[Rfam]
RNA sequence: UCAGCCGUGCCCUAGGGUUCCGUCGCUGUUUCGAGAGCGGGCCUGGUCCGAGAGGGCAAUCCCGGCACCACACAUAGCCGGGGCACACGGAGGGAGAAAAGCCCGGGAGAC
Numbered sequence: 001u002c003a004g005c006c007g008u009g010c011c012c013u014a015g016g017g018u019u020c021c022g023u024c025g026c027u028g029u030u031u032c033g034a035g036a037g038c039g040g041g042c043c044u045g046g047u048c049c050g051a052g053a054g055g056g057c058a059a060u061c062c063c064g065g066c067a068c069c070a071c072a073c074a075u076a077g078c079c080g081g082g083g084c085a086c087a088c089g090g091a092g093g094g095a096g097a098a099a100a101g102c103c104c105g106g107g108a109g110a111c
Stems, first nucleotide, its partner, number of pairs: 008058005015049002020046002022043001023040005060083007086106001088109001092104003